This 77-nucleotide sequence from Acipenser ruthenus belongs to the Rfam family "mir-192/215 microRNA precursor family". The organism belongs to Acipenser, within Eukaryota. Rfam describes the family as follows. This family represents the human microRNA (miRNA) precursors mir-192 and mir-215. Rfam links the family to the GO terms miRNA-mediated post-transcriptional gene silencing and RISC complex. Pairs were carried over by alignment from the consensus structure, which was predicted with PFOLD.
RNA sequence: GCAGGGCGAUGACCUAUGAACUGACAGUCAGUCCCAGCUCUGAACCUGCCUGGCAGUUCUAUAGGCCACAGUCCUGC
Numbered sequence: 001g002c003a004g005g006g007c008g009a010u011g012a013c014c015u016a017u018g019a020a021c022u023g024a025c026a027g028u029c030a031g032u033c034c035c036a037g038c039u040c041u042g043a044a045c046c047u048g049c050c051u052g053g054c055a056g057u058u059c060u061a062u063a064g065g066c067c068a069c070a071g072u073c074c075u076g077c
Stems, first nucleotide, its partner, number of pairs: 001077007010068002013065004018059006025052003029048003